RNA: TPP riboswitch aptamer (THI element)
RNA sequence: CCACUCUUGUCGGGGUGCCCGCGUAUGAAAUACGCAAUGGCUGAGAUCGUUUUCGAAUCCCGUAGACCUGAUCUGGAUAAUGCCAGCGUAGGAAACAAGAUCUUCUCAGCA
Numbered sequence: 001c002c003a004c005u006c007u008u009g010u011c012g013g014g015g016u017g018c019c020c021g022c023g024u025a026u027g028a029a030a031u032a033c034g035c036a037a038u039g040g041c042u043g044a045g046a047u048c049g050u051u052u053u054c055g056a057a058u059c060c061c062g063u064a065g066a067c068c069u070g071a072u073c074u075g076g077a078u079a080a081u082g083c084c085a086g087c088g089u090a091g092g093a094a095a096c097a098a099g100a101u102c103u104u105c106u107c108a109g110c111a
Stems, first nucleotide, its partner, number of pairs: 006099005011062004016056001017041003048055002067092004073086004
Dot-bracket structure: .....(((((((((.((((...................)))......((....)))..))))....((((..((((......))))..))))..)))))............